This 97-nucleotide RNA from Ureibacillus massiliensis belongs to the Rfam family "Guanidine-I riboswitch aptamer".
RNA sequence: UUAAAAGUUUUCUAGGGUUCCGCAAAUUAUAUUUGGUCUGGUCCGAGAGAAAACGUACAGUUUAACUGUAACACGGAAGGACAAAAGCCUGGGAGAU
Numbered sequence: 001u002u003a004a005a006a007g008u009u010u011u012c013u014a015g016g017g018u019u020c021c022g023c024a025a026a027u028u029a030u031a032u033u034u035g036g037u038c039u040g041g042u043c044c045g046a047g048a049g050a051a052a053a054c055g056u057a058c059a060g061u062u063u064a065a066c067u068g069u070a071a072c073a074c075g076g077a078a079g080g081a082c083a084a085a086a087g088c089c090u091g092g093g094a095g096a097u
Stems, first nucleotide, its partner, number of pairs: 007054006015044002020041002022038001023035005056070006072092001074095001078090003
Record summary: NCBI's taxonomy places the organism under Bacteria, Bacillati, Bacilli, Ureibacillus, Ureibacillus massiliensis.